[Rfam]
RNA sequence: GUGUUGGGUGAUGAAAAAAAUCAGACGGAUUCCCAUUGAUUCGUAAAGAUGAUAUCUUAACCAGCUACUUCUGACGCAU
Numbered sequence: 001g002u003g004u005u006g007g008g009u010g011a012u013g014a015a016a017a018a019a020a021u022c023a024g025a026c027g028g029a030u031u032c033c034c035a036u037u038g039a040u041u042c043g044u045a046a047a048g049a050u051g052a053u054a055u056c057u058u059a060a061c062c063a064g065c066u067a068c069u070u071c072u073g074a075c076g077c078a079u
Base pairs, nucleotide, nucleotide: 001079002078003077004076006075